[Rfam]
RNA sequence: CUCACACCCAUGUGUAGGACCCCAAAAGAUUACUAUUAAAUUUGGCACAGAUCUCUAGAAAAGUUAUCACAUAGGUGUAGGACUUGAGUUUUUUAGAGAUUUGUGCCAAAUUUAAUGGUGAUCCCUUGGGGUCCUACACACAUGGGUGUGGG
Numbered sequence: 001c002u003c004a005c006a007c008c009c010a011u012g013u014g015u016a017g018g019a020c021c022c023c024a025a026a027a028g029a030u031u032a033c034u035a036u037u038a039a040a041u042u043u044g045g046c047a048c049a050g051a052u053c054u055c056u057a058g059a060a061a062a063g064u065u066a067u068c069a070c071a072u073a074g075g076u077g078u079a080g081g082a083c084u085u086g087a088g089u090u091u092u093u094u095a096g097a098g099a100u101u102u103g104u105g106c107c108a109a110a111u112u113u114a115a116u117g118g119u120g121a122u123c124c125c126u127u128g129g130g131g132u133c134c135u136a137c138a139c140a141c142a143u144g145g146g147u148g149u150g151g152g
Stems, first nucleotide, its partner, number of pairs: 002151011013138013028123003032119031064087003067080001069078003